This 79-nucleotide sequence from Drosophila gunungcola belongs to the Rfam family "Small nucleolar RNA Me28S-Gm3255".
Rfam classes the family as a C/D-box small nucleolar RNA.
The base pairs follow the family's consensus structure, which was predicted with PFOLD.
Lineage of the source: Eukaryota > Allotriocarida > Neoptera > Panorpida > elegans subgroup (in: flies).
RNA sequence: AAUUCAAUGAUGCUUUAAUUUUCUGACAUCUCUAAUGAACCGUUGUGAUUCAAACUUUUUAAUACAAUUAACUGAUGAC
Dot-bracket structure: ..(...............................((((....))))..............................)..